The family of this 85-nucleotide RNA from Neofusicoccum parvum is "Small nucleolar RNA R38". From the family's description: snoR38 is a C/D box small nucleolar RNA conserved across yeast, human, Arabidopsis and rice. It is encoded in the intron of elongation factor-1 gamma in both pombe and cerevisiae. snoR38 guides the methylation of 2'-O-ribose sites in 28S rRNA. Rfam 15.1 lists 2,295 matches to the family in 1,305 species. Rfam links the family to the GO terms RNA processing and nucleolus. A search with the family's covariance model found it, with a score of 50 bits. Rfam classes the family as a C/D-box small nucleolar RNA. The literature on the family includes a 1995 paper in Trends Biochem Sci by Bachellerie et al., "Antisense snoRNAs: a family of nucleolar RNAs with long complementarities to rRNA".

RNA sequence: UGCUUCCAAAGAUGAGAAAUUUUUAUCAUUCAGUUAUCCCUGUCUGAAGACUACUGUUGAGAAUUAUUCACACUCUGAGAAAAUG
Numbered sequence: 001u002g003c004u005u006c007c008a009a010a011g012a013u014g015a016g017a018a019a020u021u022u023u024u025a026u027c028a029u030u031c032a033g034u035u036a037u038c039c040c041u042g043u044c045u046g047a048a049g050a051c052u053a054c055u056g057u058u059g060a061g062a063a064u065u066a067u068u069c070a071c072a073c074u075c076u077g078a079g080a081a082a083a084u085g
Base pairs, nucleotide, nucleotide: 001085002084004082005081007079